[Rfam]
RNA sequence: UUUCACCACUAGGGGAGCCUGAAUUGCCAGGCUGAGAGCAGACGGCGUCUGAAACCCUUGGAACCUGAAAAGGCGCAUAACGGUUAACGUUAUGUUCGCCGCCUGGAUUAUACCAGCGUAGGGAAGUGGUUAUGCGUUUUU
Numbered sequence: 001u002u003u004c005a006c007c008a009c010u011a012g013g014g015g016a017g018c019c020u021g022a023a024u025u026g027c028c029a030g031g032c033u034g035a036g037a038g039c040a041g042a043c044g045g046c047g048u049c050u051g052a053a054a055c056c057c058u059u060g061g062a063a064c065c066u067g068a069a070a071a072g073g074c075g076c077a078u079a080a081c082g083g084u085u086a087a088c089g090u091u092a093u094g095u096u097c098g099c100c101g102c103c104u105g106g107a108u109u110a111u112a113c114c115a116g117c118g119u120a121g122g123g124a125a126g127u128g129g130u131u132a133u134g135c136g137u138u139u140u141u
Stems, first nucleotide, its partner, number of pairs: 006129005011058004017032005039051005064122004072114002